[Rfam]
RNA sequence: ACACAGGAAAGGAGGUGAUCCGGCUGAUGAUCAAUCACCGGACGUGUGAGGUGGCUGCGGCCUGAGGCCGACGCCACUAGCGUGACGCCGGUUUCGCCGGCCAAUCCACAGCAGUCACCCGGCCCGUGGGCUCGUCGGACUCGUCCGACCGACGCCCUCCGCCCCGCGGAGGGAGUCGCUCACGGGCCGUUCUGC
Numbered sequence: 001a002c003a004c005a006g007g008a009a010a011g012g013a014g015g016u017g018a019u020c021c022g023g024c025u026g027a028u029g030a031u032c033a034a035u036c037a038c039c040g041g042a043c044g045u046g047u048g049a050g051g052u053g054g055c056u057g058c059g060g061c062c063u064g065a066g067g068c069c070g071a072c073g074c075c076a077c078u079a080g081c082g083u084g085a086c087g088c089c090g091g092u093u094u095c096g097c098c099g100g101c102c103a104a105u106c107c108a109c110a111g112c113a114g115u116c117a118c119c120c121g122g123c124c125c126g127u128g129g130g131c132u133c134g135u136c137g138g139a140c141u142c143g144u145c146c147g148a149c150c151g152a153c154g155c156c157c158u159c160c161g162c163c164c165c166g167c168g169g170a171g172g173g174a175g176u177c178g179c180u181c182a183c184g185g186g187c188c189g190u191u192c193u194g195c
Stems, first nucleotide, its partner, number of pairs: 015058003019054001060102001062100003069096003073092003120189012134153005
Description:
Actinobacteria sRNA Ms_IGR-5: a 195-nucleotide sequence from Streptomyces albus. The match comes from Rfam's covariance-model search (82 bits). The pairing is the family consensus, mapped onto this sequence.